Shown here is an 85-nucleotide RNA from Heyndrickxia oleronia, a member of the family "ZMP/ZTP riboswitch aptamer (pfl RNA motif)". The family has 185 seed sequences and 3,295 matches in Rfam 15.1. Its family is annotated with regulation of purine nucleotide biosynthetic process and one-carbon metabolic process in the Gene Ontology.
RNA sequence: UGUUAACACAGUAACUGACGACAUUUGUGGAAUAGACCACUUGGGAGCUGUGUUUAUAUCGGGUCGGGUCGUCUGGGCAGAGAUA
Numbered sequence: 001u002g003u004u005a006a007c008a009c010a011g012u013a014a015c016u017g018a019c020g021a022c023a024u025u026u027g028u029g030g031a032a033u034a035g036a037c038c039a040c041u042u043g044g045g046a047g048c049u050g051u052g053u054u055u056a057u058a059u060c061g062g063g064u065c066g067g068g069u070c071g072u073c074u075g076g077g078c079a080g081a082g083a084u085a
Stems, first nucleotide, its partner, number of pairs: 003056001005054008015044002017073005027040004063078003